Rfam assigns this 71-nucleotide RNA sequence to the family "Fluoride riboswitch aptamer (crcB RNA motif)".
Rfam's curators put it in the seed alignment.

[Rfam]
RNA sequence: GUCCGUGACGGCGAUGGAUCCCGCCUGGCCGAUGCCGAACUGCCGAUCUGGCUGAUGGUUCCUGCCCCGUC
Numbered sequence: 001g002u003c004c005g006u007g008a009c010g011g012c013g014a015u016g017g018a019u020c021c022c023g024c025c026u027g028g029c030c031g032a033u034g035c036c037g038a039a040c041u042g043c044c045g046a047u048c049u050g051g052c053u054g055a056u057g058g059u060u061c062c063u064g065c066c067c068c069g070u071c
Stems, first nucleotide, its partner, number of pairs: 010025004016062003020058002042052003
Notes:
Rfam links the family to the GO terms positive regulation of gene expression and response to fluoride.